[Rfam]
RNA sequence: UGUAACAGCAACUCCAUGUGGAUUGUGUGCCAAUUUCCAGUGGAGAUGCUGUUACUUU
Dot-bracket structure: .((((((((..((((((.(((...............)))))))))..))))))))...